[Rfam]
RNA sequence: CAGUGAUGCUCUGGAAAGUGUACCGGGCUUUCGGCCCGGUGCCGCCGAAGGGGUAACUUCGCGGGUGUCGAAUCGCGCGCGUGGGGAAAACUCUCAGGUUUUCGCGACAGAGGGGGCUCC
Numbered sequence: 001c002a003g004u005g006a007u008g009c010u011c012u013g014g015a016a017a018g019u020g021u022a023c024c025g026g027g028c029u030u031u032c033g034g035c036c037c038g039g040u041g042c043c044g045c046c047g048a049a050g051g052g053g054u055a056a057c058u059u060c061g062c063g064g065g066u067g068u069c070g071a072a073u074c075g076c077g078c079g080c081g082u083g084g085g086g087a088a089a090a091c092u093c094u095c096a097g098g099u100u101u102u103c104g105c106g107a108c109a110g111a112g113g114g115g116g117c118u119c120c
Base pairs, nucleotide, nucleotide: 007114009112010111011110012109013108020042021041022040023039024038025037026036027035044099045098046097047095048094051093052092053091057086058085059084060083061082062081063080